[Rfam]
Nucleotides: 102
Stems, first nucleotide, its partner, number of pairs: 018088001020086006031047005058078007
Number, partner (000 for none) and nucleotide at each position: 001000a002000u003000a004000g005000u006000a007000a008000u009000c010000a011000a012000a013000u014000a015000a016000c017000g018088u019000u020086g021085u022084c023083g024082u025081a026000u027000a028000a029000a030000g031047u032046u033045g034044g035043g036000a037000a038000u039000a040000a041000g042000g043035c044034c045033c046032a047031a048000a049000a050000g051000u052000c053000u054000c055000u056000a057000c058078c059077g060076g061075a062074u063073c064072a065000c066000c067000g068000u069000a070000a071000a072064u073063g074062a075061u076060c077059c078058g079000a080000c081025u082024a083023c084022g085021a086020u087000u088018a089000u090000u091000g092000a093000c094000u095000g096000u097000c098000u099000g100000c101000a102000u
A member of the RNA family "Purine riboswitch aptamer" from Planococcus lenghuensis, 102 nucleotides long. Its family is annotated with purine nucleobase biosynthetic process in the Gene Ontology. The organism belongs to Planococcus, within Bacteria. It scores 83 bits against the family's covariance model. About the family: Riboswitches are metabolite binding domains within certain messenger RNAs that serve as precision sensors for their corresponding targets.